[Rfam]
DUF805b RNA: a 32-nucleotide RNA sequence from Labilibaculum filiforme. It is annotated as a cis-regulatory element.

RNA sequence: AAAGAGAUGGCCGAAAAUCUAAAGAGUAGGCG
Numbered sequence: 001a002a003a004g005a006g007a008u009g010g011c012c013g014a015a016a017a018u019c020u021a022a023a024g025a026g027u028a029g030g031c032g
Stems, first nucleotide, its partner, number of pairs: 003020003010031003